[Rfam]
RNA sequence: GCCGCCGCCGUCUCGGACUCGCUUGGUGCAGAUCGGGACCCGUUACCCGCGCAGACGGGCCGGAUCCCGCGUUGCACCAAGUGAAUCGGAGCCGGCGCAGUGG
Numbered sequence: 001g002c003c004g005c006c007g008c009c010g011u012c013u014c015g016g017a018c019u020c021g022c023u024u025g026g027u028g029c030a031g032a033u034c035g036g037g038a039c040c041c042g043u044u045a046c047c048c049g050c051g052c053a054g055a056c057g058g059g060c061c062g063g064a065u066c067c068c069g070c071g072u073u074g075c076a077c078c079a080a081g082u083g084a085a086u087c088g089g090a091g092c093c094g095g096c097g098c099a100g101u102g103g
Base pairs, nucleotide, nucleotide: 013090014089017086019084020083023080024079025078026077027076028075029074030073031072034069035068036067037066038065040063041062
MIR168 microRNA precursor family: a 103-nucleotide RNA sequence from Zizania palustris.
Rfam 15.1 lists 518 matches to the family in 218 species.
On this family, see Reinhart et al., Genes Dev 2002: "MicroRNAs in plants".
Rfam links the family to the GO terms miRNA-mediated post-transcriptional gene silencing and RISC complex.